[Rfam]
RNA sequence: CAGCCAUGCCCUCCUUGGGCGUUUCCUCCCUAGACUUGGGCCGUUGAUCGGGGAUCGAUCAGCGGCCCCUUUCAUUAGAUGGG
Numbered sequence: 001c002a003g004c005c006a007u008g009c010c011c012u013c014c015u016u017g018g019g020c021g022u023u024u025c026c027u028c029c030c031u032a033g034a035c036u037u038g039g040g041c042c043g044u045u046g047a048u049c050g051g052g053g054a055u056c057g058a059u060c061a062g063c064g065g066c067c068c069c070u071u072u073c074a075u076u077a078g079a080u081g082g083g
Base pairs, nucleotide, nucleotide: 008020009019010018011017038068039067040066041065042064043063044062045061046060047059048058049057050056051055
RNA: Makes More Granules Regulator RNA (mmgR)
Organism: Pseudolabrys sp. Root1462